Rfam assigns this 133-nucleotide sequence from Helianthus annuus to the family "Small nucleolar RNA Z247". Rfam classes the family as a C/D-box small nucleolar RNA. Its family is annotated with nucleolus and RNA processing in the Gene Ontology. Rfam 15.1 lists 7,071 matches to the family in 142 species. On this family, see Chen et al., Nucleic Acids Res 2003: "The high diversity of snoRNAs in plants: identification and comparative study of 120 snoRNA genes from Oryza sativa".
RNA sequence: CCAGUCGAUGAUGAUGACCUAAUUGUUCACAUCAUCACUCAUCUGGGUGAUGAUUACAAACAGGUUGUAGCAGCUGUGAAAAUGAGAGAUACUUCCAUUAGUUUCUCUGACUUGUUUGAGAAGCUUGUUGACC
Numbered sequence: 001c002c003a004g005u006c007g008a009u010g011a012u013g014a015u016g017a018c019c020u021a022a023u024u025g026u027u028c029a030c031a032u033c034a035u036c037a038c039u040c041a042u043c044u045g046g047g048u049g050a051u052g053a054u055u056a057c058a059a060a061c062a063g064g065u066u067g068u069a070g071c072a073g074c075u076g077u078g079a080a081a082a083u084g085a086g087a088g089a090u091a092c093u094u095c096c097a098u099u100a101g102u103u104u105c106u107c108u109g110a111c112u113u114g115u116u117u118g119a120g121a122a123g124c125u126u127g128u129u130g131a132c133c
Base pairs, nucleotide, nucleotide: 004132005131006130007129008128084107085106086105087104088103089102090101
Dot-bracket structure: ...(((((...........................................................................(((((((..........)))))))....................))))).